[Rfam]
RNA: c-di-GMP-I riboswitch aptamer
RNA sequence: GUAAGAAUUUGGCACAACCGUGGAAACGCGGCGUCGCAAAGCUUUAGGGGCUACAGCUUUAAGCCAAGCCAGCCAGCUGCCUGG
Numbered sequence: 001g002u003a004a005g006a007a008u009u010u011g012g013c014a015c016a017a018c019c020g021u022g023g024a025a026a027c028g029c030g031g032c033g034u035c036g037c038a039a040a041g042c043u044u045u046a047g048g049g050g051c052u053a054c055a056g057c058u059u060u061a062a063g064c065c066a067a068g069c070c071a072g073c074c075a076g077c078u079g080c081c082u083g084g
Base pairs, nucleotide, nucleotide: 012037013036018031019030020029021028022027040078041077042076043075047074048073049070050069051068056064057063058062